[Rfam]
RNA sequence: AGCGGCACCGAGAGAGCAACUCGGGAGCUGGUAGAAACCAGUCCCUACGGCGUCCUAAGGGUCCGUAGGGACUGUUUUGCGCCUUCAUGUCGUCUUCCGAUAACAAGAAAGAUUCCGUAGUUUGCAGCUUGUAUCGAGAUCGUUCGUCAGGCUUUAAGAGCGGAGUCGAAUCGCUCGGGAGACAUUGGCGAGACCGAUGUCACUCUCGGCUCCGCAGUCAGC
Numbered sequence: 001a002g003c004g005g006c007a008c009c010g011a012g013a014g015a016g017c018a019a020c021u022c023g024g025g026a027g028c029u030g031g032u033a034g035a036a037a038c039c040a041g042u043c044c045c046u047a048c049g050g051c052g053u054c055c056u057a058a059g060g061g062u063c064c065g066u067a068g069g070g071a072c073u074g075u076u077u078u079g080c081g082c083c084u085u086c087a088u089g090u091c092g093u094c095u096u097c098c099g100a101u102a103a104c105a106a107g108a109a110a111g112a113u114u115c116c117g118u119a120g121u122u123u124g125c126a127g128c129u130u131g132u133a134u135c136g137a138g139a140u141c142g143u144u145c146g147u148c149a150g151g152c153u154u155u156a157a158g159a160g161c162g163g164a165g166u167c168g169a170a171u172c173g174c175u176c177g178g179g180a181g182a183c184a185u186u187g188g189c190g191a192g193a194c195c196g197a198u199g200u201c202a203c204u205c206u207c208g209g210c211u212c213c214g215c216a217g218u219c220a221g222c
Stems, first nucleotide, its partner, number of pairs: 003030004008024005031086001033084002035078003040073011160215010177205003181201008